The family of this 78-nucleotide RNA sequence from Polypedilum vanderplanki is "mir-970 microRNA precursor family". Gene Ontology terms of the family: RISC complex and miRNA-mediated post-transcriptional gene silencing. Pairs were carried over by alignment from the consensus structure, which was predicted with RNAalifold. It scores 73 bits against the family's covariance model. Lineage of the source: Eukaryota > Opisthokonta > Bilateria > Chironomidae > Polypedilum.

RNA sequence: UAGCGAUAGCCUAGCGUGUGGCUUAUUUGGUAGUGUACGCAUAAAAAUUCUAUCAUAAGACACACGCGGCUAUCGUUA
Numbered sequence: 001u002a003g004c005g006a007u008a009g010c011c012u013a014g015c016g017u018g019u020g021g022c023u024u025a026u027u028u029g030g031u032a033g034u035g036u037a038c039g040c041a042u043a044a045a046a047a048u049u050c051u052a053u054c055a056u057a058a059g060a061c062a063c064a065c066g067c068g069g070c071u072a073u074c075g076u077u078a
Stems, first nucleotide, its partner, number of pairs: 001078006008071004014067003019062002023059002028055005